[Rfam]
RNA sequence: UUAGUUGACGUUUUAGCUAUUGAACUGAUUUGUCCCUCUCGGUCAAAGAACAAUUUGUUAUUGACAGAGAGGGACAAAACAGUUCAAAAGCUAAAAUGUCUUAGG
Number, nucleotide and partner (000 for none) at each position: 001u104002u103003a102004g101005u000006u000007g000008a000009c000010g000011u096012u095013u094014u093015a092016g091017c090018u089019a000020u087021u086022g085023a084024a083025c082026u081027g080028a000029u068030u067031u066032g065033u064034c063035c000036c000037u000038c000039u000040c000041g000042g000043u000044c000045a000046a000047a000048g000049a059050a058051c057052a056053a000054u000055u000056u052057g051058u050059u049060a000061u000062u000063g034064a033065c032066a031067g030068a029069g000070a000071g000072g000073g000074a000075c000076a000077a000078a000079a000080c027081a026082g025083u024084u023085c022086a021087a020088a000089a018090g017091c016092u015093a014094a013095a012096a011097u000098g000099u000100c000101u004102u003103a002104g001105g000

Annotation: Rfam assigns this 105-nucleotide RNA sequence from Plutella xylostella to the family "mir-8517 microRNA precursor family". Lineage of the source: Eukaryota > Arthropoda > Allotriocarida > Heteroneura > Plutella.